[Rfam]
RNA sequence: ACACGCUGAAAGGAGGUGAUCCGAAAAGUGCAGUCUUAUCGGAUUCGUGAGGUGGCUGCGGGCUGACAGCCCGUCGUCGCACACCGUGCACCUCGGCAGGCUGUCUGCCGAAACCCAAGCAGUCACCGACCCGCAGGCUCGCCGGUAAGUCCGGCCGGCUCCUCCGCAAGGAGGGACCAGAGCCUGCGGGUUCCUGCGU
Numbered sequence: 001a002c003a004c005g006c007u008g009a010a011a012g013g014a015g016g017u018g019a020u021c022c023g024a025a026a027a028g029u030g031c032a033g034u035c036u037u038a039u040c041g042g043a044u045u046c047g048u049g050a051g052g053u054g055g056c057u058g059c060g061g062g063c064u065g066a067c068a069g070c071c072c073g074u075c076g077u078c079g080c081a082c083a084c085c086g087u088g089c090a091c092c093u094c095g096g097c098a099g100g101c102u103g104u105c106u107g108c109c110g111a112a113a114c115c116c117a118a119g120c121a122g123u124c125a126c127c128g129a130c131c132c133g134c135a136g137g138c139u140c141g142c143c144g145g146u147a148a149g150u151c152c153g154g155c156c157g158g159c160u161c162c163u164c165c166g167c168a169a170g171g172a173g174g175g176a177c178c179a180g181a182g183c184c185u186g187c188g189g190g191u192u193c194c195u196g197c198g199u
Stems, first nucleotide, its partner, number of pairs: 016059003020055001061109003065105003069101003074096003128192012141159006

The family of this 199-nucleotide RNA sequence from Streptomyces sp. wa22 is "Actinobacteria sRNA Ms_IGR-5". The pairing is the family consensus, mapped onto this sequence. Lineage of the source: Bacteria > Actinomycetota > Actinomycetes > Kitasatosporales > Streptomyces. Rfam classes the family as a small RNA.